[Rfam]
RNA: Small nucleolar RNA SNORA29
Organism: Oreochromis aureus
RNA sequence: CAUCCUGUUUUAGUACCAUGCACCUGCCUCUUAUUACGGGUGUGUGGCUAUGCUAACAGGAAAGAGAAACUGUCCAUCAUGAUCUGAAAGGGUCGAGCAGCCUCAUUUCUGCCAUCCUUAAAGAAAUGAUGGUACAGAGCAUG
Numbered sequence: 001c002a003u004c005c006u007g008u009u010u011u012a013g014u015a016c017c018a019u020g021c022a023c024c025u026g027c028c029u030c031u032u033a034u035u036a037c038g039g040g041u042g043u044g045u046g047g048c049u050a051u052g053c054u055a056a057c058a059g060g061a062a063a064g065a066g067a068a069a070c071u072g073u074c075c076a077u078c079a080u081g082a083u084c085u086g087a088a089a090g091g092g093u094c095g096a097g098c099a100g101c102c103u104c105a106u107u108u109c110u111g112c113c114a115u116c117c118u119u120a121a122a123g124a125a126a127u128g129a130u131g132g133u134a135c136a137g138a139g140c141a142u143g
Stems, first nucleotide, its partner, number of pairs: 004060004016047004076130004095117001097115001